[Rfam]
The record is a 169-nucleotide RNA sequence from Streptacidiphilus pinicola, which matches "M-box riboswitch aptamer (ykoK leader)" in Rfam. About the family: M-box riboswitch, also know as ykoK leader is described as a metaloregulatory RNA that sense divalent metals and function as a genetic control element of genes related to divalent metal transport in bacteria. The pairing is the family consensus, mapped onto this sequence.
RNA sequence: GAGACACCUCGUUCGGUGAGGCGUCUCCACGGACACAGGCCACUGAUCCCAACCGUCGAGAGACGCUCCGGAUCAGGACACCUCCUCCCGACCUAAGGGUUGAGGCCAAGUGGCUGCACGUGAGUGCUACGCCGUGGAGUGCCAAAGCUCUGACGAGUUGGGGUGUACC
Numbered sequence: 001g002a003g004a005c006a007c008c009u010c011g012u013u014c015g016g017u018g019a020g021g022c023g024u025c026u027c028c029a030c031g032g033a034c035a036c037a038g039g040c041c042a043c044u045g046a047u048c049c050c051a052a053c054c055g056u057c058g059a060g061a062g063a064c065g066c067u068c069c070g071g072a073u074c075a076g077g078a079c080a081c082c083u084c085c086u087c088c089c090g091a092c093c094u095a096a097g098g099g100u101u102g103a104g105g106c107c108a109a110g111u112g113g114c115u116g117c118a119c120g121u122g123a124g125u126g127c128u129a130c131g132c133c134g135u136g137g138a139g140u141g142c143c144a145a146a147g148c149u150c151u152g153a154c155g156a157g158u159u160g161g162g163g164u165g166u167a168c169c
Base pairs, nucleotide, nucleotide: 005165006164007163008162009161010160011154012153013096015149016148017147020143021142022141025139026138027137028136029135030134031133032132039114040113041112042111043110045074046073047072048071049070054065055064056063057062081105082104083103084102087099088098089097116127117126118125